[Rfam]
RNA sequence: AGCUUUGCGCAGUGGCAGUAUCGUAGCCAAUGAGGUUUAACCGAGGUGCUAUUUUCGCUAAUUGAAAACUUUUCCCAAUACCCCGGCAUGACGACUUGAAAUAUAGUCGGCAUUGGCUAUUUUUGACAGUCUACAGACA
Numbered sequence: 001a002g003c004u005u006u007g008c009g010c011a012g013u014g015g016c017a018g019u020a021u022c023g024u025a026g027c028c029a030a031u032g033a034g035g036u037u038u039a040a041c042c043g044a045g046g047u048g049c050u051a052u053u054u055u056c057g058c059u060a061a062u063u064g065a066a067a068a069c070u071u072u073u074c075c076c077a078a079u080a081c082c083c084c085g086g087c088a089u090g091a092c093g094a095c096u097u098g099a100a101a102u103a104u105a106g107u108c109g110g111c112a113u114u115g116g117c118u119a120u121u122u123u124u125g126a127c128a129g130u131c132u133a134c135a136g137a138c139a
Stems, first nucleotide, its partner, number of pairs: 020052002023049002026047003034042003085117001087115001088113003092109005132139001

Rfam assigns this 139-nucleotide sequence from Aotus nancymaae to the family "U4 spliceosomal RNA".
Its family is annotated with spliceosomal tri-snRNP complex assembly and U4 snRNP in the Gene Ontology.
By type it is a spliceosomal small nuclear RNA.